[Rfam]
The family of this 314-nucleotide RNA from Haloprofundus sp. MHR1 is "Archaeal signal recognition particle RNA". The organism belongs to Haloprofundus, within Archaea. Its Rfam clan is "SRP clan". Its family is annotated with signal recognition particle, plasma membrane targeting and SRP-dependent cotranslational protein targeting to membrane, signal sequence recognition in the Gene Ontology. Pairs were carried over by alignment from the consensus structure, which is taken from published work.

RNA sequence: GAGUGGACUAGGUCGGGCAGUUAGGCCCUGCUCGUCAACCCGCCAUAGAGUCUUUAGCGGGGACCGAACGUCGGGCGCGUCCGGUCAGACCGGUACGGGCCCCGAAAGCCAACGUAGAAACCUCGUCCUGCGGGGACAGCGGCUUCGCGUCGCUCGUCCGCAGGGGCGAACCGUCACGAUUCAUCGGCGGUACUGGGUCAGGCGCGGAAGCGAGCAGCCCACCGUCGGACGUGUGUCGCUCGUAGGAUCGCGGGGUGGAGGAGGCAACCGGGAUUCCCCGUACCGGAACGCCGGGCAACCCCGACCGUCCGCAU
Numbered sequence: 001g002a003g004u005g006g007a008c009u010a011g012g013u014c015g016g017g018c019a020g021u022u023a024g025g026c027c028c029u030g031c032u033c034g035u036c037a038a039c040c041c042g043c044c045a046u047a048g049a050g051u052c053u054u055u056a057g058c059g060g061g062g063a064c065c066g067a068a069c070g071u072c073g074g075g076c077g078c079g080u081c082c083g084g085u086c087a088g089a090c091c092g093g094u095a096c097g098g099g100c101c102c103c104g105a106a107a108g109c110c111a112a113c114g115u116a117g118a119a120a121c122c123u124c125g126u127c128c129u130g131c132g133g134g135g136a137c138a139g140c141g142g143c144u145u146c147g148c149g150u151c152g153c154u155c156g157u158c159c160g161c162a163g164g165g166g167c168g169a170a171c172c173g174u175c176a177c178g179a180u181u182c183a184u185c186g187g188c189g190g191u192a193c194u195g196g197g198u199c200a201g202g203c204g205c206g207g208a209a210g211c212g213a214g215c216a217g218c219c220c221a222c223c224g225u226c227g228g229a230c231g232u233g234u235g236u237c238g239c240u241c242g243u244a245g246g247a248u249c250g251c252g253g254g255g256u257g258g259a260g261g262a263g264g265c266a267a268c269c270g271g272g273a274u275u276c277c278c279c280g281u282a283c284c285g286g287a288a289c290g291c292c293g294g295g296c297a298a299c300c301c302c303g304a305c306c307g308u309c310c311g312c313a314u
Base pairs, nucleotide, nucleotide: 001314003312004311005310006309007308008307011065012064013063014062015033016032017031018030019029020028039061040060041059042058043057070305071304072303073302074301075300079296080295081294082293083291090286091285092284093283094282095281096280097279098278099277101272102271103270104269108265109264110263113260115258120256121255122254123253124252125251126250127246128245129244130243131242132241133240134239135237136236137235138234139232140231141230142181145179146178147177149175151173152172154169155168156167157166158165159164184228185227186226187225188224189223190222194221195220196219197218198217203212204211205210